[Rfam]
RNA: Guanidine-II riboswitch aptamer (mini-ykkC)
RNA sequence: CUGCGAGGACGACCUCCCCCAUCAGGGCAAGGCAGUCGGGACGACCCGG
Numbered sequence: 001c002u003g004c005g006a007g008g009a010c011g012a013c014c015u016c017c018c019c020c021a022u023c024a025g026g027g028c029a030a031g032g033c034a035g036u037c038g039g040g041a042c043g044a045c046c047c048g049g
Base pairs, nucleotide, nucleotide: 003018005016006015007014008013036049037048038047039046040045
Dot-bracket structure: ..(.((((....)))).).................(((((....)))))